[Rfam]
RNA sequence: GGGGGCGAACAGGUUUCGACCGGAUAGGCGAAGCGUCAGUGGCGUGCCGUGGUUGAUCAGUUGGCCACGUUAAAAGCUGAUCACUACCUUCAAUUGCCGAAGGUAACUACGCUUUGGCUGCCUAGUUAAAUAGGUAACCCGGACUAAGGACUGACGUCGGGUCGGUCCGGACGUCCGUCACCAAUCCCGACUAGCCGCGCGGCAAACGUUGGAUACACGCGCGGCGAAAUAAAGUUUCCGACUAGUGAGUCGCGAGCCCUGUCGACGAGGCGCGCGGCAAGCGAAGCUAAAUUCAUCGACUACGCACGUAGAAGCUGCCGUGGAGAUAUCUCGGGACGCGGGUUCGAUUCCCGCCGCCUCCACUU
Numbered sequence: 001g002g003g004g005g006c007g008a009a010c011a012g013g014u015u016u017c018g019a020c021c022g023g024a025u026a027g028g029c030g031a032a033g034c035g036u037c038a039g040u041g042g043c044g045u046g047c048c049g050u051g052g053u054u055g056a057u058c059a060g061u062u063g064g065c066c067a068c069g070u071u072a073a074a075a076g077c078u079g080a081u082c083a084c085u086a087c088c089u090u091c092a093a094u095u096g097c098c099g100a101a102g103g104u105a106a107c108u109a110c111g112c113u114u115u116g117g118c119u120g121c122c123u124a125g126u127u128a129a130a131u132a133g134g135u136a137a138c139c140c141g142g143a144c145u146a147a148g149g150a151c152u153g154a155c156g157u158c159g160g161g162u163c164g165g166u167c168c169g170g171a172c173g174u175c176c177g178u179c180a181c182c183a184a185u186c187c188c189g190a191c192u193a194g195c196c197g198c199g200c201g202g203c204a205a206a207c208g209u210u211g212g213a214u215a216c217a218c219g220c221g222c223g224g225c226g227a228a229a230u231a232a233a234g235u236u237u238c239c240g241a242c243u244a245g246u247g248a249g250u251c252g253c254g255a256g257c258c259c260u261g262u263c264g265a266c267g268a269g270g271c272g273c274g275c276g277g278c279a280a281g282c283g284a285a286g287c288u289a290a291a292u293u294c295a296u297c298g299a300c301u302a303c304g305c306a307c308g309u310a311g312a313a314g315c316u317g318c319c320g321u322g323g324a325g326a327u328a329u330c331u332c333g334g335g336a337c338g339c340g341g342g343u344u345c346g347a348u349u350c351c352c353g354c355c356g357c358c359u360c361c362a363c364u365u
Stems, first nucleotide, its partner, number of pairs: 001361007020334003023330004033321003037317004043308005048069005056081007116139002119136006140177005148168006156191006195224006208242005245282002249278006256271003261300004267293002338354005